This 112-nucleotide sequence belongs to the Rfam family "Y RNA". The literature on the family includes a 2000 paper in Nucleic Acids Res by Teunissen et al., "Conserved features of Y RNAs: a comparison of experimentally derived secondary structures".
[Rfam]
RNA sequence: GGUUGGUCUGAAUGUAGUGAGUUAUCUCAAUGGACUGUUCACAGUCUGUUACAGAUAGAACUCCUUGUUCUAUUCCUUCCCCUGUCUUACUGCUGCACCUGACUUGUCAAAA
Numbered sequence: 001g002g003u004u005g006g007u008c009u010g011a012a013u014g015u016a017g018u019g020a021g022u023u024a025u026c027u028c029a030a031u032g033g034a035c036u037g038u039u040c041a042c043a044g045u046c047u048g049u050u051a052c053a054g055a056u057a058g059a060a061c062u063c064c065u066u067g068u069u070c071u072a073u074u075c076c077u078u079c080c081c082c083u084g085u086c087u088u089a090c091u092g093c094u095g096c097a098c099c100u101g102a103c104u105u106g107u108c109a110a111a112a
Stems, first nucleotide, its partner, number of pairs: 001108003005104004010100001014096002016091006029074003033070002

It is annotated as a non-coding RNA gene.